A member of the RNA family "Small nucleolar RNA snoR136" from Nyssa sinensis, 148 nucleotides long. For this family Rfam cites "Mining small RNA sequencing data: a new approach to identify small nucleolar RNAs in Arabidopsis" (Chen and Wu, Nucleic Acids Res, 2009). Rfam links the family to the GO terms nucleolus and RNA processing. Rfam 15.1 lists 452 matches to the family in 212 species. The match comes from Rfam's covariance-model search (59 bits).
RNA sequence: AUGGCUUCGCUUUCAUAAAAGCUUUCACACGUUGCUUACAAUUUUUGUUUCGUUGUUUGGCAGCGCUGAAGGUGAAGCUAGAAAAUUGUUCCUCUCGCUAUCCAGUGUUACCCUCUAUGGUGCACUUGGACGUUGGGGAACUACAUUU
Numbered sequence: 001a002u003g004g005c006u007u008c009g010c011u012u013u014c015a016u017a018a019a020a021g022c023u024u025u026c027a028c029a030c031g032u033u034g035c036u037u038a039c040a041a042u043u044u045u046u047g048u049u050u051c052g053u054u055g056u057u058u059g060g061c062a063g064c065g066c067u068g069a070a071g072g073u074g075a076a077g078c079u080a081g082a083a084a085a086u087u088g089u090u091c092c093u094c095u096c097g098c099u100a101u102c103c104a105g106u107g108u109u110a111c112c113c114u115c116u117a118u119g120g121u122g123c124a125c126u127u128g129g130a131c132g133u134u135g136g137g138g139a140a141c142u143a144c145a146u147u148u
Stems, first nucleotide, its partner, number of pairs: 002081001003079003008074006021066002031064006038057001041056002088141007096132002101130005108120003

Overview: The source organism's lineage runs through Eukaryota, Tracheophyta, Magnoliopsida, Cornales and Nyssa.